[Rfam]
RNA sequence: CAAGCAGGGACCACAGCAGGAGCAUUCACAUCGUGGCCCUGUCUGAUUCCUUGAAUCUGUGAAUCCUACA
Numbered sequence: 001c002a003a004g005c006a007g008g009g010a011c012c013a014c015a016g017c018a019g020g021a022g023c024a025u026u027c028a029c030a031u032c033g034u035g036g037c038c039c040u041g042u043c044u045g046a047u048u049c050c051u052u053g054a055a056u057c058u059g060u061g062a063a064u065c066c067u068a069c070a
Stems, first nucleotide, its partner, number of pairs: 007039003011036002016069001018067004022034002043059001045057005

The family of this 70-nucleotide RNA sequence from Alligator mississippiensis is "Mammalian CPEB3 ribozyme".
A reference for the family is Salehi-Ashtiani et al. (2006), "A genomewide search for ribozymes reveals an HDV-like sequence in the human CPEB3 gene", Science.
The source organism's lineage runs through Eukaryota, Craniata, Vertebrata, Archosauria and Alligator.